[Rfam]
RNA sequence: GCUGGACAAUCUGGAGAGAGACGUCCUCGAGGCGUCCACCGAAGGAGAAACCUCCCCGCCUCCACCGCGGUCGAGGGAAGCUCUCAGGUACCCGUGACAGAUGGGGGAAA
Dot-bracket structure: ......(.(((((......((((.........)))).(((((..(((...((((..................))))....))))).)))........))))).)......
Numbered sequence: 001g002c003u004g005g006a007c008a009a010u011c012u013g014g015a016g017a018g019a020g021a022c023g024u025c026c027u028c029g030a031g032g033c034g035u036c037c038a039c040c041g042a043a044g045g046a047g048a049a050a051c052c053u054c055c056c057c058g059c060c061u062c063c064a065c066c067g068c069g070g071u072c073g074a075g076g077g078a079a080g081c082u083c084u085c086a087g088g089u090a091c092c093c094g095u096g097a098c099a100g101a102u103g104g105g106g107g108a109a110a
Stems, first nucleotide, its partner, number of pairs: 007104001009102005020036004038089003041085002045083003051076004